[Rfam]
The record is a 127-nucleotide sequence from Staphylococcus saprophyticus, which matches "Staphylococcus sRNA sau-59" in Rfam. Taxonomically the source falls in Staphylococcus saprophyticus (Bacteria, Bacillota, Staphylococcaceae, Staphylococcus). On this family, see Abu-Qatouseh et al., J Mol Med (Berl) 2010: "Identification of differentially expressed small non-protein-coding RNAs in Staphylococcus aureus displaying both the normal and the small-colony variant phenotype". It is annotated as a small RNA. Pairs were carried over by alignment from the consensus structure, which was predicted with mfold.

RNA sequence: UCAUCCUCUUGAAUAUCGAUAAUUUCUUUCCAUUUAGCAAUAAAUUUAUCUUUUUUAUCUCUAGCUUUUUGAAUAUCAACACUUCUGCGCGUUUUACGUGUAAAUUCUGUUGUUUUAUCUUGUAGUG
Numbered sequence: 001u002c003a004u005c006c007u008c009u010u011g012a013a014u015a016u017c018g019a020u021a022a023u024u025u026c027u028u029u030c031c032a033u034u035u036a037g038c039a040a041u042a043a044a045u046u047u048a049u050c051u052u053u054u055u056u057a058u059c060u061c062u063a064g065c066u067u068u069u070u071g072a073a074u075a076u077c078a079a080c081a082c083u084u085c086u087g088c089g090c091g092u093u094u095u096a097c098g099u100g101u102a103a104a105u106u107c108u109g110u111u112g113u114u115u116u117a118u119c120u121u122g123u124a125g126u127g
Base pairs, nucleotide, nucleotide: 018050019049020048021047022046025043031037056127057126059125060124062122063121064120078093079092080091100110101109102108